[Rfam]
Record summary:
The family of this 86-nucleotide RNA sequence from Trema orientale is "Small nucleolar RNA SNORD25". Rfam links the family to the GO terms RNA processing and nucleolus. A search with the family's covariance model found it, with a score of 71 bits. The literature on the family includes a 1996 paper in Nature by Tycowski et al., "A mammalian gene with introns instead of exons generating stable RNA products". Clan: SNORD25 clan. The base pairs follow the family's consensus structure, which was predicted with PFOLD.

RNA sequence: AGUGACAGUGAUGAGUCUUAACAGACCUGUAAUGAUUUGCGGAUAUGAUCGCAGAUCUUUUUGAACAUCUAAGGGACUGAGUUUCU
Numbered sequence: 001a002g003u004g005a006c007a008g009u010g011a012u013g014a015g016u017c018u019u020a021a022c023a024g025a026c027c028u029g030u031a032a033u034g035a036u037u038u039g040c041g042g043a044u045a046u047g048a049u050c051g052c053a054g055a056u057c058u059u060u061u062u063g064a065a066c067a068u069c070u071a072a073g074g075g076a077c078u079g080a081g082u083u084u085c086u
Base pairs, nucleotide, nucleotide: 002085004083005082006081